The record is a 101-nucleotide sequence from Piliocolobus tephrosceles, which matches "Y RNA" in Rfam. The source organism's lineage runs through Eukaryota, Gnathostomata, Euarchontoglires, Cercopithecidae and Piliocolobus. Rfam's curators write: Y RNAs are components of the Ro ribonucleoprotein particle (Ro RNP), in association with Ro60 and La proteins. A search with the family's covariance model found it, with a score of 43 bits. Pairs were carried over by alignment from the consensus structure, which is taken from published work. The family's RNA type in Rfam is non-coding RNA gene.
RNA sequence: GGCUGACCUGAGUGCAGUAGUUUUUACAGCGAAUUGAUCACUAUCAGUUAACAUUUCUUUGUUCCUUCUCUGCUUCCACUACUUCAUUUGACUAGCCCUAA
Number, nucleotide and partner (000 for none) at each position: 001g097002g096003c095004u094005g093006a000007c000008c090009u000010g089011a088012g000013u000014g085015c000016a080017g079018u078019a000020g076021u000022u000023u000024u000025u000026a000027c000028a063029g062030c061031g000032a059033a058034u000035u000036g000037a000038u000039c000040a000041c000042u000043a000044u000045c000046a000047g000048u000049u000050a000051a000052c000053a000054u000055u000056u000057c000058u033059u032060u000061g030062u029063u028064c000065c000066u000067u000068c000069u000070c000071u000072g000073c000074u000075u000076c020077c000078a018079c017080u016081a000082c000083u000084u000085c014086a000087u000088u011089u010090g008091a000092c000093u005094a004095g003096c002097c001098c000099u000100a000101a000